[Rfam]
Rfam assigns this 473-nucleotide sequence from Truepera radiovictrix to the family "Bacterial RNase P class A". Its family is annotated with dimeric ribonuclease P complex, tRNA processing and ribonuclease P activity in the Gene Ontology. A search with the family's covariance model found it, with a score of 272 bits. Ribonuclease P (RNase P) is a ubiquitous endoribonuclease, found in archaea, bacteria and eukarya as well as chloroplasts and mitochondria. Rfam classes the family as a ribozyme. Taxonomically the source falls in Truepera radiovictrix (Bacteria, Thermotogati, Deinococcota, Truepera).

RNA sequence: CGGUGAGAGGGACCUGAUCGCGGCUUGGCUGGGCAACUGGCUUUGCUGAGGAAAGUCCGGGCUCCGCAGGGCAGGGUGCCAGGUAACACCUGGGCGCGUAAGGCGACGGCAAGUGCAACAGAGAGCAGACCGCCCGGAUGGGGAGCACCCACGGAUCGGCGCGACGCGUGUCGCGAACGUGCUCACGUAGCGCGUCGAUGUCGGGAUGCUACCUUCCGGGUAAGGGUGAAACGGUGCGGUAAGAGCGCACCAGUGCCUUUGGUAACAAGGGCAGCUAGGUAAACCCCACCCGGUGCAAGGUCCGAUAGGGAGAAAGAGCUUGCCCGGCUCGUUAACAUCUCCGGGUUGACCGCUCGAGGCGUCUGGCGACAGACGUCCCAGAUAGAUGAUCAGGCGCCCGCAGCCAAGAUGUGAGGUUUUUUACAUCCUGGCUGCGCGGCCGACAGAACCCGGCUUAUCCCCUCUCCCGCACC
Numbered sequence: 001c002g003g004u005g006a007g008a009g010g011g012a013c014c015u016g017a018u019c020g021c022g023g024c025u026u027g028g029c030u031g032g033g034c035a036a037c038u039g040g041c042u043u044u045g046c047u048g049a050g051g052a053a054a055g056u057c058c059g060g061g062c063u064c065c066g067c068a069g070g071g072c073a074g075g076g077u078g079c080c081a082g083g084u085a086a087c088a089c090c091u092g093g094g095c096g097c098g099u100a101a102g103g104c105g106a107c108g109g110c111a112a113g114u115g116c117a118a119c120a121g122a123g124a125g126c127a128g129a130c131c132g133c134c135c136g137g138a139u140g141g142g143g144a145g146c147a148c149c150c151a152c153g154g155a156u157c158g159g160c161g162c163g164a165c166g167c168g169u170g171u172c173g174c175g176a177a178c179g180u181g182c183u184c185a186c187g188u189a190g191c192g193c194g195u196c197g198a199u200g201u202c203g204g205g206a207u208g209c210u211a212c213c214u215u216c217c218g219g220g221u222a223a224g225g226g227u228g229a230a231a232c233g234g235u236g237c238g239g240u241a242a243g244a245g246c247g248c249a250c251c252a253g254u255g256c257c258u259u260u261g262g263u264a265a266c267a268a269g270g271g272c273a274g275c276u277a278g279g280u281a282a283a284c285c286c287c288a289c290c291c292g293g294u295g296c297a298a299g300g301u302c303c304g305a306u307a308g309g310g311a312g313a314a315a316g317a318g319c320u321u322g323c324c325c326g327g328c329u330c331g332u333u334a335a336c337a338u339c340u341c342c343g344g345g346u347u348g349a350c351c352g353c354u355c356g357a358g359g360c361g362u363c364u365g366g367c368g369a370c371a372g373a374c375g376u377c378c379c380a381g382a383u384a385g386a387u388g389a390u391c392a393g394g395c396g397c398c399c400g401c402a403g404c405c406a407a408g409a410u411g412u413g414a415g416g417u418u419u420u421u422u423a424c425a426u427c428c429u430g431g432c433u434g435c436g437c438g439g440c441c442g443a444c445a446g447a448a449c450c451c452g453g454c455u456u457a458u459c460c461c462c463u464c465u466c467c468c469g470c471a472c473c
Stems, first nucleotide, its partner, number of pairs: 001469003005466007012458001013394007021048004027042005053456003057453005062295001064293002069330004074291005079093005094107001095105002097102001108286002113284002115280002130225002132221007140213001233251006253275001254273008299351004309342005320335003324331001358377008